The family of this 81-nucleotide sequence is "Plastid-rpl20 3UTR RNA". It is one of the family's seed sequences. Rfam's curators write: Plastid rpl20 is a non-coding RNA (ncRNA) recognised in plastids. It was found in the three prime untranslated region (3UTR) of rpl20 gene, it presence in the 3UTR region sugest a role in transcript maduration. For this family Rfam cites "Retrograde signaling in plants: A critical review focusing on the GUN pathway and beyond" (Richter et al., Plant Commun, 2023). By type it is a cis-regulatory element.

[Rfam]
RNA sequence: AACCGAAUUCCCGGAGAGGGAACUCCGGGAAGAUACAAUAAAUUAAGAUUAAACGGGAGGGAUCAACGAGCAUGUUGAAAU
Numbered sequence: 001a002a003c004c005g006a007a008u009u010c011c012c013g014g015a016g017a018g019g020g021a022a023c024u025c026c027g028g029g030a031a032g033a034u035a036c037a038a039u040a041a042a043u044u045a046a047g048a049u050u051a052a053a054c055g056g057g058a059g060g061g062a063u064c065a066a067c068g069a070g071c072a073u074g075u076u077g078a079a080a081u
Base pairs, nucleotide, nucleotide: 008031009030010029011028012027013026014025015024016023064077065076066075067074